[Rfam]
RNA sequence: UAUUAUGAUGUAAGUGUCAAAAGUAUAAAUUGCGUUUGUGCUUGCACAAAUAAGCAAUUUAUACUUAUUGACACGCCGAACACCGAAAACGGAAUAAAAUGGUGUGAAUACGCCAUUUUAUGGGAGUUUGAGGUGUUCGAGGAUUGCGGGAAUUGCAUAGCAAUGGAGCAAUCCGUAGGUAUCAUAAUA
Numbered sequence: 001u002a003u004u005a006u007g008a009u010g011u012a013a014g015u016g017u018c019a020a021a022a023g024u025a026u027a028a029a030u031u032g033c034g035u036u037u038g039u040g041c042u043u044g045c046a047c048a049a050a051u052a053a054g055c056a057a058u059u060u061a062u063a064c065u066u067a068u069u070g071a072c073a074c075g076c077c078g079a080a081c082a083c084c085g086a087a088a089a090c091g092g093a094a095u096a097a098a099a100u101g102g103u104g105u106g107a108a109u110a111c112g113c114c115a116u117u118u119u120a121u122g123g124g125a126g127u128u129u130g131a132g133g134u135g136u137u138c139g140a141g142g143a144u145u146g147c148g149g150g151a152a153u154u155g156c157a158u159a160g161c162a163a164u165g166g167a168g169c170a171a172u173c174c175g176u177a178g179g180u181a182u183c184a185u186a187a188u189a
Base pairs, nucleotide, nucleotide: 006184007183008182009181010180011179016072017071018070019069022065023064024063025062026061027060028059029058030057031056032055033054034051036049037048038047039046040045077139078138079137080136081135082134083133084132087129088128089127090126094121095120096119097118098117099116100115101114102113103112104111105110141174142173143172144171145170146169147168152164153163154162155161